[Rfam]
RNA: U8 small nucleolar RNA
RNA sequence: UCAUCUAGUAGGUAAUUCUGAUCUGUAAGUCCACUGGACUUCAGAAAAGAAUUGUGAUGAUCGCGGAACAUGACUUUAUGUGAGUUAAAUCCCGCAAGGGGAGAGAGCUAACGACACUCUUCUCUUAACUCUGAU
Numbered sequence: 001u002c003a004u005c006u007a008g009u010a011g012g013u014a015a016u017u018c019u020g021a022u023c024u025g026u027a028a029g030u031c032c033a034c035u036g037g038a039c040u041u042c043a044g045a046a047a048a049g050a051a052u053u054g055u056g057a058u059g060a061u062c063g064c065g066g067a068a069c070a071u072g073a074c075u076u077u078a079u080g081u082g083a084g085u086u087a088a089a090u091c092c093c094g095c096a097a098g099g100g101g102a103g104a105g106a107g108c109u110a111a112c113g114a115c116a117c118u119c120u121u122c123u124c125u126u127a128a129c130u131c132u133g134a135u
Stems, first nucleotide, its partner, number of pairs: 023044003027041006074094001079088001098124003103121004